A member of the RNA family "F6 TB sRNA" from Rhodococcus opacus, 57 nucleotides long. For this family Rfam cites "Identification of small RNAs in Mycobacterium tuberculosis" (Arnvig and Young, Mol Microbiol, 2009). Taxonomically the source falls in Rhodococcus opacus (Bacteria, Bacillati, Nocardiaceae, Rhodococcus). Rfam's curators put it in the seed alignment.
RNA sequence: CUGUCAGCCCCGUGUUGCUGCCUGACCCCCGACCUGGCAGCAGCGCGGGGCUCUUGC
Number, nucleotide and partner (000 for none) at each position: 001c000002u056003g055004u000005c000006a000007g051008c050009c049010c048011c047012g046013u045014g044015u043016u042017g041018c040019u039020g038021c037022c036023u000024g000025a000026c000027c000028c000029c000030c000031g000032a000033c000034c000035u000036g022037g021038c020039a019040g018041c017042a016043g015044c014045g013046c012047g011048g010049g009050g008051c007052u000053c000054u000055u003056g002057c000